Shown here is a 73-nucleotide RNA from Dissulfurirhabdus thermomarina, a member of the family "tRNA". It scores 66 bits against the family's covariance model. By type it is a transfer RNA. From the family's description: Transfer RNA (tRNA) molecules are approximately 80 nucleotides in length. Gene Ontology term of the family: triplet codon-amino acid adaptor activity. Pairs were carried over by alignment from the consensus structure, which is taken from published work. Lineage of the source: Bacteria > Pseudomonadati > Thermodesulfobacteriota > Dissulfuribacteraceae > Dissulfurirhabdus.

RNA sequence: AGGCCAGUAGCUCUAAUGGUAGAGCACCGGACUCCAAAUCCGGGUGUUGGGGGUUCGAGUCCCUCCUGGCCUG
Numbered sequence: 001a002g003g004c005c006a007g008u009a010g011c012u013c014u015a016a017u018g019g020u021a022g023a024g025c026a027c028c029g030g031a032c033u034c035c036a037a038a039u040c041c042g043g044g045u046g047u048u049g050g051g052g053g054u055u056c057g058a059g060u061c062c063c064u065c066c067u068g069g070c071c072u073g
Stems, first nucleotide, its partner, number of pairs: 001072007010025004027043005049065005